[Rfam]
RNA sequence: GCCGAGUCAUGUAGCGUUGACUUGUAACCCGAGCGGGGGCAAUAGGGUGGUGGAAUAGCGGGAUCUGCUUGAUGGAUUGGGUGCAGCGACCUAAAGGCCGGCUUGCCCAUUUCAAGUUAGGGAGUUGAGCCAUACGAUUUGGGCGAAGGCUCGAGUCAAAGUGGACUCCUAAAGUGGAGGGCACCACGUCAGGCUGGCUUUACAGAGCAGCGACUCCCUCCCGCUCUUAACGGUGAAAGGAUUACAAACCAACGCCCGCUGCGCUCGCUAUGCCCAGCAAGCAGACCAUCAUCAAACUACCAUCAUU
Numbered sequence: 001g002c003c004g005a006g007u008c009a010u011g012u013a014g015c016g017u018u019g020a021c022u023u024g025u026a027a028c029c030c031g032a033g034c035g036g037g038g039g040c041a042a043u044a045g046g047g048u049g050g051u052g053g054a055a056u057a058g059c060g061g062g063a064u065c066u067g068c069u070u071g072a073u074g075g076a077u078u079g080g081g082u083g084c085a086g087c088g089a090c091c092u093a094a095a096g097g098c099c100g101g102c103u104u105g106c107c108c109a110u111u112u113c114a115a116g117u118u119a120g121g122g123a124g125u126u127g128a129g130c131c132a133u134a135c136g137a138u139u140u141g142g143g144c145g146a147a148g149g150c151u152c153g154a155g156u157c158a159a160a161g162u163g164g165a166c167u168c169c170u171a172a173a174g175u176g177g178a179g180g181g182c183a184c185c186a187c188g189u190c191a192g193g194c195u196g197g198c199u200u201u202a203c204a205g206a207g208c209a210g211c212g213a214c215u216c217c218c219u220c221c222c223g224c225u226c227u228u229a230a231c232g233g234u235g236a237a238a239g240g241a242u243u244a245c246a247a248a249c250c251a252a253c254g255c256c257c258g259c260u261g262c263g264c265u266c267g268c269u270a271u272g273c274c275c276a277g278c279a280a281g282c283a284g285a286c287c288a289u290c291a292u293c294a295a296a297c298u299a300c301c302a303u304c305a306u307u
Stems, first nucleotide, its partner, number of pairs: 001040003004023006028037003044306001046304008056294001060290002062287001064285008073276003077272001079266008088257001092254001100250002103247003107240002110238005116231004121227005127168003131164001133160001136157009169174001176221006187212003194205003
This 307-nucleotide RNA sequence from Cocos nucifera belongs to the Rfam family "Plant signal recognition particle RNA". By type it is a non-coding RNA gene. It scores 193 bits against the family's covariance model. Pairs were carried over by alignment from the consensus structure, which is taken from published work. NCBI's taxonomy places the organism under Eukaryota, Streptophytina, Tracheophyta, commelinids, Cocos.